RNA: RpsF leader
RNA sequence: ACCGUACGCUUAUCACGUUCCUUGCUUCCAUGGGCCGGGGUUGGCCUUUGACAGGAAGCUGAAUAAUCCAUAAGGAGCAAUUCUAUG
Numbered sequence: 001a002c003c004g005u006a007c008g009c010u011u012a013u014c015a016c017g018u019u020c021c022u023u024g025c026u027u028c029c030a031u032g033g034g035c036c037g038g039g040g041u042u043g044g045c046c047u048u049u050g051a052c053a054g055g056a057a058g059c060u061g062a063a064u065a066a067u068c069c070a071u072a073a074g075g076a077g078c079a080a081u082u083c084u085a086u087g
Stems, first nucleotide, its partner, number of pairs: 017078007024059006032047003